[Rfam]
RNA: c-di-AMP riboswitch aptamer (ydaO/yuaA leader)
Organism: Halalkalibacter akibai
RNA sequence: AGACCUUAUUCGCUUAAUCUGCUAAACAGAGCGGGGGAACCAAUUGGGCCAAUUUUACUUGGCCUUGGGGUGAAUCUUACUUAGUAAGAAGGGAUACUCUCAGUCCCUAAUCCGACAGCUAACCUCGUCAGCGUUUUAUUGGAGAGAA
Numbered sequence: 001a002g003a004c005c006u007u008a009u010u011c012g013c014u015u016a017a018u019c020u021g022c023u024a025a026a027c028a029g030a031g032c033g034g035g036g037g038a039a040c041c042a043a044u045u046g047g048g049c050c051a052a053u054u055u056u057a058c059u060u061g062g063c064c065u066u067g068g069g070g071u072g073a074a075u076c077u078u079a080c081u082u083a084g085u086a087a088g089a090a091g092g093g094a095u096a097c098u099c100u101c102a103g104u105c106c107c108u109a110a111u112c113c114g115a116c117a118g119c120u121a122a123c124c125u126c127g128u129c130a131g132c133g134u135u136u137u138a139u140u141g142g143a144g145a146g147a148a
Base pairs, nucleotide, nucleotide: 011133012132013131014130018030019029020028031128032127033126034125035124036123041067042066068113069112070111076088077087078086079085091107092106093105094104